[Rfam]
RNA: RNase MRP
Organism: Curvularia clavata
RNA sequence: UCCUCGCUCGAAGAAUCGCAACGAAGCACACGUACAGAGCGCACUCGCUGCGUCUCUCCCCCAUGCUUUGGGAGAAAGUCCCCGGACAACGAUCUCUACGAUCGCACUUUUAGCAACGAACCGCCAUAGAAGCCGCGGCUUCCACUACCGACUACAGCACUUCUCUCCGUCUUUAUCCGCCACUACUCUUUUUCUCGAAGCUUUCCCGACGCUGUGGGUGGAGGGGCUGACACUGGAUGAUGACAUGAGUCCGUUGGCUACCUUGCUCGCAUGCAAAGGGUUGUGGAGGGAUCUGGAGGAGGAGAGAGACGAUGGAGGGUGCUAGGUGUGGAGGGUCUUCUCGUCCAGUUUAUGGUUAUGCGAUUGCCUUUCGGUCGCUUUGGUAAAACAAAGUGUCUUGAAUGGUAACUCAAUGGGGCUCAUUCUCGAGGCGAGG
Numbered sequence: 001u002c003c004u005c006g007c008u009c010g011a012a013g014a015a016u017c018g019c020a021a022c023g024a025a026g027c028a029c030a031c032g033u034a035c036a037g038a039g040c041g042c043a044c045u046c047g048c049u050g051c052g053u054c055u056c057u058c059c060c061c062c063a064u065g066c067u068u069u070g071g072g073a074g075a076a077a078g079u080c081c082c083c084g085g086a087c088a089a090c091g092a093u094c095u096c097u098a099c100g101a102u103c104g105c106a107c108u109u110u111u112a113g114c115a116a117c118g119a120a121c122c123g124c125c126a127u128a129g130a131a132g133c134c135g136c137g138g139c140u141u142c143c144a145c146u147a148c149c150g151a152c153u154a155c156a157g158c159a160c161u162u163c164u165c166u167c168c169g170u171c172u173u174u175a176u177c178c179g180c181c182a183c184u185a186c187u188c189u190u191u192u193u194c195u196c197g198a199a200g201c202u203u204u205c206c207c208g209a210c211g212c213u214g215u216g217g218g219u220g221g222a223g224g225g226g227c228u229g230a231c232a233c234u235g236g237a238u239g240a241u242g243a244c245a246u247g248a249g250u251c252c253g254u255u256g257g258c259u260a261c262c263u264u265g266c267u268c269g270c271a272u273g274c275a276a277a278g279g280g281u282u283g284u285g286g287a288g289g290g291a292u293c294u295g296g297a298g299g300a301g302g303a304g305a306g307a308g309a310c311g312a313u314g315g316a317g318g319g320u321g322c323u324a325g326g327u328g329u330g331g332a333g334g335g336u337c338u339u340c341u342c343g344u345c346c347a348g349u350u351u352a353u354g355g356u357u358a359u360g361c362g363a364u365u366g367c368c369u370u371u372c373g374g375u376c377g378c379u380u381u382g383g384u385a386a387a388a389c390a391a392a393g394u395g396u397c398u399u400g401a402a403u404g405g406u407a408a409c410u411c412a413a414u415g416g417g418g419c420u421c422a423u424u425c426u427c428g429a430g431g432c433g434a435g436g
Stems, first nucleotide, its partner, number of pairs: 002436006008429004014365006022072001023069005037055001039053005077420002080418004251333001254331003260327004271320002274317001303313001306310001367405002370402005